Source information: A member of the RNA family "glmS glucosamine-6-phosphate activated ribozyme aptamer" from Sporolactobacillus shoreae, 172 nucleotides long. The source organism's lineage runs through Bacteria, Bacillati, Bacillota, Bacilli and Sporolactobacillus. By type it is a riboswitch.
RNA sequence: ACUAAAUAUAAAGCGCCUGGACUAUUCCGGCAGACGGAGAAACACAGGAAUAGUUGACGAGGGAGAGGUUUAUCGAAAGAUUCGGCGGAUGCCUCUCGGAUUGCUUGCAGCCGUUAGUCCGAGCACAAAACAGGAGGGCAACUUUCUGUACAGAAGCCGGACAGCAGGCAUA
Dot-bracket structure: ...................((((((((....................))))))))........(((((....((((.....))))......)))))(((.(.......).)))...(((((.(.......(((((((....)))))))........))))))..........
Numbered sequence: 001a002c003u004a005a006a007u008a009u010a011a012a013g014c015g016c017c018u019g020g021a022c023u024a025u026u027c028c029g030g031c032a033g034a035c036g037g038a039g040a041a042a043c044a045c046a047g048g049a050a051u052a053g054u055u056g057a058c059g060a061g062g063g064a065g066a067g068g069u070u071u072a073u074c075g076a077a078a079g080a081u082u083c084g085g086c087g088g089a090u091g092c093c094u095c096u097c098g099g100a101u102u103g104c105u106u107g108c109a110g111c112c113g114u115u116a117g118u119c120c121g122a123g124c125a126c127a128a129a130a131c132a133g134g135a136g137g138g139c140a141a142c143u144u145u146c147u148g149u150a151c152a153g154a155a156g157c158c159g160g161a162c163a164g165c166a167g168g169c170a171u172a
Stems, first nucleotide, its partner, number of pairs: 020055008064096005073085004097113003101109001117162005123157001131148007